The family of this 72-nucleotide sequence from Azospirillum sp. RU38E is "Makes More Granules Regulator RNA (mmgR)". By type it is a small RNA. Its Rfam clan is "suhB sRNA clan". The match comes from Rfam's covariance-model search (58 bits). The pairing is the family consensus, mapped onto this sequence. A reference for the family is Corbino et al. (2005), "Evidence for a second class of S-adenosylmethionine riboswitches and other regulatory RNA motifs in alpha-proteobacteria", Genome Biol.
RNA sequence: GCUGUAUGCCCUUUUCGGGCGUUUCCUCCCUAAACUCAGGCCGCUCCCGUAGCGGCCUUUUCUUUUUUCGGC
Numbered sequence: 001g002c003u004g005u006a007u008g009c010c011c012u013u014u015u016c017g018g019g020c021g022u023u024u025c026c027u028c029c030c031u032a033a034a035c036u037c038a039g040g041c042c043g044c045u046c047c048c049g050u051a052g053c054g055g056c057c058u059u060u061u062c063u064u065u066u067u068u069c070g071g072c
Stems, first nucleotide, its partner, number of pairs: 008020004039057007